[Rfam]
mir-1744 microRNA precursor family: a 74-nucleotide RNA from Centropus unirufus.
The match comes from Rfam's covariance-model search (73 bits).
Its family is annotated with RISC complex and miRNA-mediated post-transcriptional gene silencing in the Gene Ontology.
RNA sequence: AGGACCAGUGCUCCUCUGUUGAACUCAAAAGCAGAAUGCGUGUGUUGACUUCAACAGGAGCAAGAUUGAACCCU
Numbered sequence: 001a002g003g004a005c006c007a008g009u010g011c012u013c014c015u016c017u018g019u020u021g022a023a024c025u026c027a028a029a030a031g032c033a034g035a036a037u038g039c040g041u042g043u044g045u046u047g048a049c050u051u052c053a054a055c056a057g058g059a060g061c062a063a064g065a066u067u068g069a070a071c072c073c074u
Stems, first nucleotide, its partner, number of pairs: 002072002006068004012062001014060003017056007025048004030043001032042001
Pairs were carried over by alignment from the consensus structure, which was predicted with RNAalifold.